[Rfam]
Shown here is a 129-nucleotide sequence from Silurus meridionalis, a member of the family "Small nucleolar RNA SNORA55". Rfam describes the family as follows. ACA55 is a member of the H/ACA class of snoRNA that guide the sites of modification of uridines to pseudouridines. The family's consensus secondary structure was predicted with PFOLD. A search with the family's covariance model found it, with a score of 55 bits. The organism belongs to Silurus, within Eukaryota.

RNA sequence: GCACUCCAGCAAACUCAGUCCAGCUGCUUUGGUGUUGGAUCAGGGUCAACAUGGUGCCAAAGUAACUCAGAGUAUAUCCAGAUGAGUCUCUGUCUGUUAGAGCUCGUCUCUACAACCUCUGAUACACAG
Numbered sequence: 001g002c003a004c005u006c007c008a009g010c011a012a013a014c015u016c017a018g019u020c021c022a023g024c025u026g027c028u029u030u031g032g033u034g035u036u037g038g039a040u041c042a043g044g045g046u047c048a049a050c051a052u053g054g055u056g057c058c059a060a061a062g063u064a065a066c067u068c069a070g071a072g073u074a075u076a077u078c079c080a081g082a083u084g085a086g087u088c089u090c091u092g093u094c095u096g097u098u099a100g101a102g103c104u105c106g107u108c109u110c111u112a113c114a115a116c117c118u119c120u121g122a123u124a125c126a127c128a129g
Stems, first nucleotide, its partner, number of pairs: 001057005013046004018041001020038002067122005072116001080109008094100002